[Rfam]
RNA sequence: AGCCGUGCAGUGAGCACAAAGCGAACUAUUCUUUCGCCUUUUACUAAAGAAUACCGUGUGAGCACUGCGAUUAGCGGCAUACGCCCAUUUUUGGAGGACUUGGCCAUUGUUGGCUAA
Numbered sequence: 001a002g003c004c005g006u007g008c009a010g011u012g013a014g015c016a017c018a019a020a021g022c023g024a025a026c027u028a029u030u031c032u033u034u035c036g037c038c039u040u041u042u043a044c045u046a047a048a049g050a051a052u053a054c055c056g057u058g059u060g061a062g063c064a065c066u067g068c069g070a071u072u073a074g075c076g077g078c079a080u081a082c083g084c085c086c087a088u089u090u091u092u093g094g095a096g097g098a099c100u101u102g103g104c105c106a107u108u109g110u111u112g113g114c115u116a117a
Base pairs, nucleotide, nucleotide: 003077004076005075006074008067009066010065011064012063015060016059017058018057027053028052029051030050031049032048033047034046100117101116102115103114104113105112
Record summary
The family of this 117-nucleotide RNA from Prunus yedoensis is "U5 spliceosomal RNA". By type it is a spliceosomal small nuclear RNA. Rfam links the family to the GO terms U5 snRNP and spliceosomal tri-snRNP complex assembly. It scores 80 bits against the family's covariance model. Taxonomically the source falls in Prunus yedoensis (Eukaryota, Streptophyta, Streptophytina, Amygdaleae).